Rfam assigns this 553-nucleotide part of an RNA from Bifidobacterium stellenboschense to the family "Bacterial small subunit ribosomal RNA". The source organism's lineage runs through Bacteria, Actinomycetota, Actinomycetes, Bifidobacteriales and Bifidobacterium. It scores 1538 bits against the family's covariance model. Its family is annotated with structural constituent of ribosome and ribosome in the Gene Ontology. The base pairs follow the family's consensus structure, which is taken from published work.

[Rfam]
RNA sequence: UUUGUGGAGGGUUCGAUUCUGGCUCAGGAUGAACGCUGGCGGCGUGCUUAACACAUGCAAGUCGAACGGGAUCCAUCAAGCUUGCUUGGUGGUGAGAGUGGCGAACGGGUGAGUAAUGCGUGACCGACCUGCCCCGUACUCUGGAAUAGCUCCUGGAAACGGGUGGUAAUGCCGGAUGUUCCAGUUGAUCGCAUGGUCUUCUGGGAAAGGGUCUUACUGGUAUGGGAUGGGGUCGCGUCCUAUCAGCUUGACGGUGGGGUGAUGGCCUACCGUGGCUUCGACGGGUAGCCGGCCUGAGAGGGCGACCGGCCACAUUGGGACUGAGAUACGGCCCAGACUCCUACGGGAGGCAGCAGUGGGGAAUAUUGCACAAUGGGCGCAAGCCUGAUGCAGCGACGCCGCGUGCGGGAUGACGGCCUUCGGGUUGUAAACCGCUUUUGGCAGGGAGCAAGGCGUUUUUUGGCGUUGAGUGUACCUGUCGAAUAAGCACCGGCUAACUACGUGCCAGCAGCCGCGGUAAUACGUAGGGUGCAAGCGUUAUCCGGAAUUAUUG
Numbered sequence: 001u002u003u004g005u006g007g008a009g010g011g012u013u014c015g016a017u018u019c020u021g022g023c024u025c026a027g028g029a030u031g032a033a034c035g036c037u038g039g040c041g042g043c044g045u046g047c048u049u050a051a052c053a054c055a056u057g058c059a060a061g062u063c064g065a066a067c068g069g070g071a072u073c074c075a076u077c078a079a080g081c082u083u084g085c086u087u088g089g090u091g092g093u094g095a096g097a098g099u100g101g102c103g104a105a106c107g108g109g110u111g112a113g114u115a116a117u118g119c120g121u122g123a124c125c126g127a128c129c130u131g132c133c134c135c136g137u138a139c140u141c142u143g144g145a146a147u148a149g150c151u152c153c154u155g156g157a158a159a160c161g162g163g164u165g166g167u168a169a170u171g172c173c174g175g176a177u178g179u180u181c182c183a184g185u186u187g188a189u190c191g192c193a194u195g196g197u198c199u200u201c202u203g204g205g206a207a208a209g210g211g212u213c214u215u216a217c218u219g220g221u222a223u224g225g226g227a228u229g230g231g232g233u234c235g236c237g238u239c240c241u242a243u244c245a246g247c248u249u250g251a252c253g254g255u256g257g258g259g260u261g262a263u264g265g266c267c268u269a270c271c272g273u274g275g276c277u278u279c280g281a282c283g284g285g286u287a288g289c290c291g292g293c294c295u296g297a298g299a300g301g302g303c304g305a306c307c308g309g310c311c312a313c314a315u316u317g318g319g320a321c322u323g324a325g326a327u328a329c330g331g332c333c334c335a336g337a338c339u340c341c342u343a344c345g346g347g348a349g350g351c352a353g354c355a356g357u358g359g360g361g362a363a364u365a366u367u368g369c370a371c372a373a374u375g376g377g378c379g380c381a382a383g384c385c386u387g388a389u390g391c392a393g394c395g396a397c398g399c400c401g402c403g404u405g406c407g408g409g410a411u412g413a414c415g416g417c418c419u420u421c422g423g424g425u426u427g428u429a430a431a432c433c434g435c436u437u438u439u440g441g442c443a444g445g446g447a448g449c450a451a452g453g454c455g456u457u458u459u460u461u462g463g464c465g466u467u468g469a470g471u472g473u474a475c476c477u478g479u480c481g482a483a484u485a486a487g488c489a490c491c492g493g494c495u496a497a498c499u500a501c502g503u504g505c506c507a508g509c510a511g512c513c514g515c516g517g518u519a520a521u522a523c524g525u526a527g528g529g530u531g532c533a534a535g536c537g538u539u540a541u542c543c544g545g546a547a548u549u550a551u552u553g
Stems, first nucleotide, its partner, number of pairs: 009025005027543004032539006039402006045395002047360001052358003056355003061102003066099002074091007109313003118238008128230002133226007141175004150165001152163004181204004187198004209218002239285003246276003251273008288310004292303004315336005338349004366392001368391003374387005405435004415426004440480006449470001455464003487532005498527005508515002